[Rfam]
This 149-nucleotide RNA from Populus trichocarpa belongs to the Rfam family "Small nucleolar RNA snoR145". Rfam classes the family as an H/ACA-box small nucleolar RNA. Rfam's curators put it in the seed alignment. The organism belongs to Populus, within Eukaryota.
RNA sequence: AUGCGAAGGUCCCAGCAGAGGGGUAAGGAACUCUAUAAAUUGAGGCCCCUCUAACAAUCAUAAAAAUUCCUUCGCAGAUUAAUUUGCCGAAUCGUAGGAUGCCCUGAAUUUCUCAUGACGGGCCGUCUUGAACCCUCGGCUAAAUAUCA
Numbered sequence: 001a002u003g004c005g006a007a008g009g010u011c012c013c014a015g016c017a018g019a020g021g022g023g024u025a026a027g028g029a030a031c032u033c034u035a036u037a038a039a040u041u042g043a044g045g046c047c048c049c050u051c052u053a054a055c056a057a058u059c060a061u062a063a064a065a066a067u068u069c070c071u072u073c074g075c076a077g078a079u080u081a082a083u084u085u086g087c088c089g090a091a092u093c094g095u096a097g098g099a100u101g102c103c104c105u106g107a108a109u110u111u112c113u114c115a116u117g118a119c120g121g122g123c124c125g126u127c128u129u130g131a132a133c134c135c136u137c138g139g140c141u142a143a144a145u146a147u148c149a
Base pairs, nucleotide, nucleotide: 003075004074005073006072007071008070009069011020013018026050027049031044032043033042035040086140087139088138089137090136098127099126101124103122104121105120106119
The literature on the family includes a 2009 paper in Nucleic Acids Res by Chen and Wu, "Mining small RNA sequencing data: a new approach to identify small nucleolar RNAs in Arabidopsis".